[Rfam]
RNA sequence: UACUAAACAACGAACAUUUUUCAUAUAGUCGCAGGAAUAUGGCCUGCCAGUUUCUACCAGUUUACCGUAAAUAGACUGACUAUGGAAAAGCAAACCGGAUAU
Numbered sequence: 001u002a003c004u005a006a007a008c009a010a011c012g013a014a015c016a017u018u019u020u021u022c023a024u025a026u027a028g029u030c031g032c033a034g035g036a037a038u039a040u041g042g043c044c045u046g047c048c049a050g051u052u053u054c055u056a057c058c059a060g061u062u063u064a065c066c067g068u069a070a071a072u073a074g075a076c077u078g079a080c081u082a083u084g085g086a087a088a089a090g091c092a093a094a095c096c097g098g099a100u101a102u
Base pairs, nucleotide, nucleotide: 018088019087020086021085022084023083024082025081029049031047032046033045034044035043058078059077060076061075062074063073064072